A member of the RNA family "Makes More Granules Regulator RNA (mmgR)" from Methyloceanibacter marginalis, 75 nucleotides long. Lineage of the source: Bacteria > Pseudomonadati > Pseudomonadota > Hyphomicrobiales > Methyloceanibacter. Pairs were carried over by alignment from the consensus structure. A search with the family's covariance model found it, with a score of 64 bits.
[Rfam]
RNA sequence: UGCCGCUGCCCUCCUUGGGCGUCUCCCUCAGACUUGGGCCGUUCGUUCAAUCGAACGGCCCUUUUUUUGUGUUUU
Numbered sequence: 001u002g003c004c005g006c007u008g009c010c011c012u013c014c015u016u017g018g019g020c021g022u023c024u025c026c027c028u029c030a031g032a033c034u035u036g037g038g039c040c041g042u043u044c045g046u047u048c049a050a051u052c053g054a055a056c057g058g059c060c061c062u063u064u065u066u067u068u069g070u071g072u073u074u075u
Stems, first nucleotide, its partner, number of pairs: 008020004037060009